[Rfam]
RNA sequence: CAAGUCCACUGCGAUGAAGGAAUAGCGAACCACAUCGGCCCCGAGCCGUGCGCAGGCCACCGUGAGGUGGUCGGCGAAGCGUCGGUAGGGAAACGUGCGGGCCAGCCAUUGAGCUGCGAUAGUUGUGCAAUUCCGGGUGCCGACGCGGUUGAGAACGCGGAAGGCAACAAGAAGGGGCGCGUGAACGCGAGUGCCUCAACGACCCGGCGUGGUCUAAGGCCU
Numbered sequence: 001c002a003a004g005u006c007c008a009c010u011g012c013g014a015u016g017a018a019g020g021a022a023u024a025g026c027g028a029a030c031c032a033c034a035u036c037g038g039c040c041c042c043g044a045g046c047c048g049u050g051c052g053c054a055g056g057c058c059a060c061c062g063u064g065a066g067g068u069g070g071u072c073g074g075c076g077a078a079g080c081g082u083c084g085g086u087a088g089g090g091a092a093a094c095g096u097g098c099g100g101g102c103c104a105g106c107c108a109u110u111g112a113g114c115u116g117c118g119a120u121a122g123u124u125g126u127g128c129a130a131u132u133c134c135g136g137g138u139g140c141c142g143a144c145g146c147g148g149u150u151g152a153g154a155a156c157g158c159g160g161a162a163g164g165c166a167a168c169a170a171g172a173a174g175g176g177g178c179g180c181g182u183g184a185a186c187g188c189g190a191g192u193g194c195c196u197c198a199a200c201g202a203c204c205c206g207g208c209g210u211g212g213u214c215u216a217a218g219g220c221c222u
Stems, first nucleotide, its partner, number of pairs: 012037005019031002023190001025188002040090003045086004049081002051076003055072007110216001111214001113213006133207006139165003144159004171200001174197007

Shown here is a 222-nucleotide RNA sequence from Cupriavidus pinatubonensis, a member of the family "Group II catalytic intron D1-D4-6".
Taxonomically the source falls in Cupriavidus pinatubonensis (Bacteria, Pseudomonadati, Burkholderiales, Burkholderiaceae).
The pairing is the family consensus, mapped onto this sequence.
From the family's description: Group II introns are found in rRNA, tRNA and mRNA of organelles in fungi, plants and protists, and also in mRNA in bacteria.